[Rfam]
RNA sequence: AUGCAUGUUUAAAAAAAAAAUCUGCUCCUCUUUCCCUUAAGGAGCAUGAAUGUAUCCAUAACAUGCUAGAGGAAAAUAAGAAGUCUUCAGGGCUGCCAGUCUUGCAGUAAAGGCUGAGUGGUAGUAUGUCUCUCCUACAUAU
Dot-bracket structure: ..((((((............(.((((((............)))))).)............)))))).............(.((........((..((((((((......))))))).)..)).........)).).......
Numbered sequence: 001a002u003g004c005a006u007g008u009u010u011a012a013a014a015a016a017a018a019a020a021u022c023u024g025c026u027c028c029u030c031u032u033u034c035c036c037u038u039a040a041g042g043a044g045c046a047u048g049a050a051u052g053u054a055u056c057c058a059u060a061a062c063a064u065g066c067u068a069g070a071g072g073a074a075a076a077u078a079a080g081a082a083g084u085c086u087u088c089a090g091g092g093c094u095g096c097c098a099g100u101c102u103u104g105c106a107g108u109a110a111a112g113g114c115u116g117a118g119u120g121g122u123a124g125u126a127u128g129u130c131u132c133u134c135c136u137a138c139a140u141a142u
Stems, first nucleotide, its partner, number of pairs: 003066006021048001023046006080135001082133002092122002096118001097116007